RNA sequence: CGCAGAGUAGACUUGUGUGCGUUAAGUGCCAGCUGAACAGGGAGUUGUCAGCAGGACGAAAAGAUUUUCUUGCGGUACACGAGUCGCAUCCCGCUGCA
Numbered sequence: 001c002g003c004a005g006a007g008u009a010g011a012c013u014u015g016u017g018u019g020c021g022u023u024a025a026g027u028g029c030c031a032g033c034u035g036a037a038c039a040g041g042g043a044g045u046u047g048u049c050a051g052c053a054g055g056a057c058g059a060a061a062a063g064a065u066u067u068u069c070u071u072g073c074g075g076u077a078c079a080c081g082a083g084u085c086g087c088a089u090c091c092c093g094c095u096g097c098a
Base pairs, nucleotide, nucleotide: 002097003096004095005094010085011084012083013082014081015080016079017078018077019076020074021073022072026057027056029055030054032052033051034050035049036048040091041090042089044087061071062070063069064068
THF (Tetrahydrofolate) riboswitch aptamer: a 98-nucleotide RNA from Lacrimispora xylanisolvens. Tetrahydrofolate (THF) riboswitch was first reported for Ames et al. as an RNA motif in 5' untranslated (5'-UTR)regions of folate transport and biosynthesis genes in Firmicutes genomes. The family's consensus secondary structure is taken from published work.